Shown here is a 106-nucleotide sequence from Janthinobacterium sp. KBS0711, a member of the family "Glycine riboswitch aptamer".

RNA sequence: CAGCUCAACUCUGGAGAGCGGCCGCGGCUAUUGCCGGCGGCCCACCGAAGGGGCGCACGGGGCAAGCCCCCGUAAUCUCUCAGGUACAAAGGACAGGGGGGUCAGU
Numbered sequence: 001c002a003g004c005u006c007a008a009c010u011c012u013g014g015a016g017a018g019c020g021g022c023c024g025c026g027g028c029u030a031u032u033g034c035c036g037g038c039g040g041c042c043c044a045c046c047g048a049a050g051g052g053g054c055g056c057a058c059g060g061g062g063c064a065a066g067c068c069c070c071c072g073u074a075a076u077c078u079c080u081c082a083g084g085u086a087c088a089a090a091g092g093a094c095a096g097g098g099g100g101g102u103c104a105g106u
Base pairs, nucleotide, nucleotide: 006101009098010097011096012095013094020042021041022040023039024038025037044085045084046083047081048080051079052078053077057073058072059071060070061069

The match comes from Rfam's covariance-model search (49 bits). NCBI's taxonomy places the organism under Bacteria, Pseudomonadati, Pseudomonadota, Betaproteobacteria, Janthinobacterium.